[Rfam]
RNA sequence: AGUUGCAAGUUUGAGGCCAUAGCAGUAGUGCUCAUGGUGUGGCCUGGCAGAUUCCAAUGAACUGCAAAUUCUGUU
Numbered sequence: 001a002g003u004u005g006c007a008a009g010u011u012u013g014a015g016g017c018c019a020u021a022g023c024a025g026u027a028g029u030g031c032u033c034a035u036g037g038u039g040u041g042g043c044c045u046g047g048c049a050g051a052u053u054c055c056a057a058u059g060a061a062c063u064g065c066a067a068a069u070u071c072u073g074u075u
Stems, first nucleotide, its partner, number of pairs: 015044004021075005027069001028040003048064003052061003
This 75-nucleotide RNA from Alligator mississippiensis belongs to the Rfam family "Mammalian CPEB3 ribozyme". The organism belongs to Alligator, within Eukaryota.